[Rfam]
RNA sequence: AACAACGGACUUCAGUAUUGGUAUCUCCCAUCGACAUUUGGACUUCUCCUAAUCACCUCGGUUUGAAAAACGCCGAGGUUUUU
Numbered sequence: 001a002a003c004a005a006c007g008g009a010c011u012u013c014a015g016u017a018u019u020g021g022u023a024u025c026u027c028c029c030a031u032c033g034a035c036a037u038u039u040g041g042a043c044u045u046c047u048c049c050u051a052a053u054c055a056c057c058u059c060g061g062u063u064u065g066a067a068a069a070a071c072g073c074c075g076a077g078g079u080u081u082u083u
Base pairs, nucleotide, nucleotide: 055079056078057077058076059075060074061073062072
This 83-nucleotide sequence from Nostoc sp. PCC 7107 belongs to the Rfam family "Photosynthesis regulatory RNA1". The base pairs follow the family's consensus structure, which was predicted with CMfinder. Rfam links the family to the GO terms regulation of photosynthesis and regulation of translation. From the family's description: Formerly known as Syr1 discovered in Synechocystis sp PCC 6803, is a regulatory factor controlling photosynthetic functions. PsrR1 interacts with the ribosome binding regions of several photosynthesis-related mRNAs. In particular, psaL mRNA is processed by RNase E only in the presence of PsrR1. By type it is a small RNA. For this family Rfam cites "The small regulatory RNA SyR1/PsrR1 controls photosynthetic functions in cyanobacteria" (Georg et al., Plant Cell, 2014). The family has 13 seed sequences and 92 matches in Rfam 15.1. The organism belongs to Nostoc, within Bacteria.